The record is a 361-nucleotide RNA from Collinsella sp. An2, which matches "Bacterial RNase P class A" in Rfam.

RNA sequence: AAAGCGGGCCAGACGGUCGCGCGACCGGCGCUUCGGCGCCGGCGUGAGGAAAGUCCGGGCUCCACAGGGCAGGAUGCUGGCUAACGGCCAGGCGGAGCGAUCCGACGGAAAGUGCCGCAGAAAAGAAGACUCCCACCUGCGCGCAAGCGUAAAGGGAAAAGCUGAAACGGUGGUGUAAGAGACCACCAGCGUCGUGGCAACACGGCGGCUGGGUAAACCCCAUCCGGAGCAAGCGCGAAUAGGGGCGCUAUGGGUUGGCCCGGCCCGCGCCCGGGUAGCGUGCGAGGAGCCGCGCAGCGAUGCGUGUGCCAAGAUAAAUGACCGUCCUCGACAGAACCCGGCUUACAGGCCCGCUUUGCAC
Numbered sequence: 001a002a003a004g005c006g007g008g009c010c011a012g013a014c015g016g017u018c019g020c021g022c023g024a025c026c027g028g029c030g031c032u033u034c035g036g037c038g039c040c041g042g043c044g045u046g047a048g049g050a051a052a053g054u055c056c057g058g059g060c061u062c063c064a065c066a067g068g069g070c071a072g073g074a075u076g077c078u079g080g081c082u083a084a085c086g087g088c089c090a091g092g093c094g095g096a097g098c099g100a101u102c103c104g105a106c107g108g109a110a111a112g113u114g115c116c117g118c119a120g121a122a123a124a125g126a127a128g129a130c131u132c133c134c135a136c137c138u139g140c141g142c143g144c145a146a147g148c149g150u151a152a153a154g155g156g157a158a159a160a161g162c163u164g165a166a167a168c169g170g171u172g173g174u175g176u177a178a179g180a181g182a183c184c185a186c187c188a189g190c191g192u193c194g195u196g197g198c199a200a201c202a203c204g205g206c207g208g209c210u211g212g213g214u215a216a217a218c219c220c221c222a223u224c225c226g227g228a229g230c231a232a233g234c235g236c237g238a239a240u241a242g243g244g245g246c247g248c249u250a251u252g253g254g255u256u257g258g259c260c261c262g263g264c265c266c267g268c269g270c271c272c273g274g275g276u277a278g279c280g281u282g283c284g285a286g287g288a289g290c291c292g293c294g295c296a297g298c299g300a301u302g303c304g305u306g307u308g309c310c311a312a313g314a315u316a317a318a319u320g321a322c323c324g325u326c327c328u329c330g331a332c333a334g335a336a337c338c339c340g341g342c343u344u345a346c347a348g349g350c351c352c353g354c355u356u357u358g359c360a361c
Stems, first nucleotide, its partner, number of pairs: 001357010012326007020046004026042001028040001051344003055341005060229004067261004072225005077091005092106001093104004107220002112218002114214003130161002133156002138151005169187006189209001190207007233281004243272006252266005289309002291306006
Dot-bracket structure: ((((((((((.(((((((.((((..(.(...........).)))))....[[[.[[[[[((((...[[[[.((((((((((.....)))))(((((....)))).)((...(((((.............((.((...(((((....)))))...))...)).......((((((.......)))))).((((((((....))))))).)..)))..)))))))))))))...((((......((((((...(((((.]]]]))))))))))).....)))).......((((((((....)))))).))..........)))))))..........]]]]]]]]...))))))))))....

Source information: It is annotated as a ribozyme. NCBI's taxonomy places the organism under Bacteria, Bacillati, Actinomycetota, Coriobacteriia, Collinsella. Gene Ontology terms of the family: dimeric ribonuclease P complex, tRNA processing and ribonuclease P activity. A search with the family's covariance model found it, with a score of 274 bits. The family's consensus secondary structure is taken from published work.